Source information:
A member of the RNA family "mir-67 microRNA precursor family" from Eumeta japonica, 86 nucleotides long. Pairs were carried over by alignment from the consensus structure, which was predicted with RNAalifold. Gene Ontology terms of the family: miRNA-mediated post-transcriptional gene silencing and RISC complex. A reference for the family is Liu et al. (2010), "MicroRNAs of Bombyx mori identified by Solexa sequencing", BMC Genomics. NCBI's taxonomy places the organism under Eukaryota, Ecdysozoa, Allotriocarida, Panorpida, Eumeta.
RNA sequence: UACCACGGUUACUCACUCAACCUGGGUGUGAUGUGUGCACUCGCCGCUCAGCCCAUCACAACCUCCUUGAGUGAGCGACCGCGGCG
Numbered sequence: 001u002a003c004c005a006c007g008g009u010u011a012c013u014c015a016c017u018c019a020a021c022c023u024g025g026g027u028g029u030g031a032u033g034u035g036u037g038c039a040c041u042c043g044c045c046g047c048u049c050a051g052c053c054c055a056u057c058a059c060a061a062c063c064u065c066c067u068u069g070a071g072u073g074a075g076c077g078a079c080c081g082c083g084g085c086g
Stems, first nucleotide, its partner, number of pairs: 009077001012075009024063002027060007